[Rfam]
The record is a 55-nucleotide RNA sequence, which matches "Glutamine-II riboswitch aptamer" in Rfam. Pairs were carried over by alignment from the consensus structure, which is taken from published work.
RNA sequence: UUACGUUCAUCCUAUCUUGGACGCAUGAAAUGGAAAUAGGGAACGGGAUUUCCAU
Numbered sequence: 001u002u003a004c005g006u007u008c009a010u011c012c013u014a015u016c017u018u019g020g021a022c023g024c025a026u027g028a029a030a031u032g033g034a035a036a037u038a039g040g041g042a043a044c045g046g047g048a049u050u051u052c053c054a055u
Base pairs, nucleotide, nucleotide: 004045005044006043007042008041010021011020012019030055031054032053033052034051035050036049037048
Notes
Its family is annotated with glutamine binding in the Gene Ontology.